[Rfam]
RNA sequence: AUGGGGGAAAACCCCAUACUCCUCACACACUAAAUCGCCCGAUUAAUCGGGCUUU
Numbered sequence: 001a002u003g004g005g006g007g008a009a010a011a012c013c014c015c016a017u018a019c020u021c022c023u024c025a026c027a028c029a030c031u032a033a034a035u036c037g038c039c040c041g042a043u044u045a046a047u048c049g050g051g052c053u054u055u
Stems, first nucleotide, its partner, number of pairs: 001017006037052006
RNA: Cyanobacterial functional RNA 1